[Rfam]
RNA sequence: UUGCUAGAGCUGGUAAAAUGGAACCAAAUCAGCUGCUCGACGAUUUGGUCCCCUUCAACCAGCUGCAGCUG
Numbered sequence: 001u002u003g004c005u006a007g008a009g010c011u012g013g014u015a016a017a018a019u020g021g022a023a024c025c026a027a028a029u030c031a032g033c034u035g036c037u038c039g040a041c042g043a044u045u046u047g048g049u050c051c052c053c054u055u056c057a058a059c060c061a062g063c064u065g066c067a068g069c070u071g
Base pairs, nucleotide, nucleotide: 003069004068005067008064009063010062011061012060013059014058017055018054020051021050022049024048025047026046027045028044029043030042
This 71-nucleotide sequence from Neogale vison belongs to the Rfam family "mir-133 microRNA precursor family". A reference for the family is Lagos-Quintana et al. (2002), "Identification of tissue-specific microRNAs from mouse", Curr Biol. Rfam's curators write: mir-133 was first experimentally characterised in mouse and homologues have since been discovered in several other species. The mature sequence is excised from the 3' arm of the hairpin. The match comes from Rfam's covariance-model search (76 bits). The family has 127 seed sequences and 3,763 matches in Rfam 15.1. NCBI's taxonomy places the organism under Eukaryota, Euteleostomi, Caniformia, Musteloidea, Neogale. Rfam links the family to the GO terms miRNA-mediated post-transcriptional gene silencing and RISC complex. The family's consensus secondary structure was predicted with PFOLD.